[Rfam]
RNA sequence: GGCUGGUUUAAGGAUAGUGGAGUUAUCAGAAUUUACUAAUAUCAGUGUUGCUAAAGUUGGUAACAACUUCCCACUGCUAAAUUUGACUGGCAAAA
Numbered sequence: 001g002g003c004u005g006g007u008u009u010a011a012g013g014a015u016a017g018u019g020g021a022g023u024u025a026u027c028a029g030a031a032u033u034u035a036c037u038a039a040u041a042u043c044a045g046u047g048u049u050g051c052u053a054a055a056g057u058u059g060g061u062a063a064c065a066a067c068u069u070c071c072c073a074c075u076g077c078u079a080a081a082u083u084u085g086a087c088u089g090g091c092a093a094a095a
Stems, first nucleotide, its partner, number of pairs: 002091007010084002015079001016075005022070001034062003038058002
Rfam assigns this 95-nucleotide RNA from Macaca nemestrina to the family "Y RNA". Rfam describes the family as follows. Y RNAs are components of the Ro ribonucleoprotein particle (Ro RNP), in association with Ro60 and La proteins. The Y RNAs and Ro60 and La proteins are well conserved, but the function of the Ro RNP is not known. In humans the RNA component can be one of four small RNAs -- hY1, hY3, hY4 and hY5. The family's RNA type in Rfam is non-coding RNA gene. Rfam 15.1 lists 26,986 matches to the family in 650 species.